[Rfam]
RNA sequence: GACCAUUGUAAGGAUUGCGGCACCUCGUGUGCCUGCCUUGCACCUCCCUGUUGGACUUUGCCGGGCCUUUGUGCCCGGCACUUUUU
Numbered sequence: 001g002a003c004c005a006u007u008g009u010a011a012g013g014a015u016u017g018c019g020g021c022a023c024c025u026c027g028u029g030u031g032c033c034u035g036c037c038u039u040g041c042a043c044c045u046c047c048c049u050g051u052u053g054g055a056c057u058u059u060g061c062c063g064g065g066c067c068u069u070u071g072u073g074c075c076c077g078g079c080a081c082u083u084u085u086u
Stems, first nucleotide, its partner, number of pairs: 008041006059080008